[Rfam]
RNA sequence: UCCGCCGCGAGGCGGAAUCUGAAGGAAGCCGGAGGCAAACCCUCGGUCUGACGAACAGGAAUCACAUACAAGGCAUGACGGGACGGACGAGCUUGCUAAUCAAAGCGAAGUCCAAUACUGCCCGAAUCCCGGCAUGUAAAUGUGGCAGAUGGAUGAGGGGAAGGCUAUCGCU
Dot-bracket structure: ((((((....))))))...........(.(((..((...(((((((((((...........((((((.....(((.(.(((((.((((..((((........))))...)))).............))))).).)))..)))))))))))...))))))....))..))).)

The record is a 172-nucleotide RNA sequence from Paenibacillus sp. TCA20, which matches "Group II catalytic intron D1-D4-3" in Rfam. The base pairs follow the family's consensus structure. NCBI's taxonomy places the organism under Bacteria, Bacillati, Caryophanales, Paenibacillaceae, Paenibacillus. Rfam describes the family as follows. Group II introns are found in rRNA, tRNA and mRNA of organelles in fungi, plants and protists, and also in mRNA in bacteria. A search with the family's covariance model found it, with a score of 160 bits.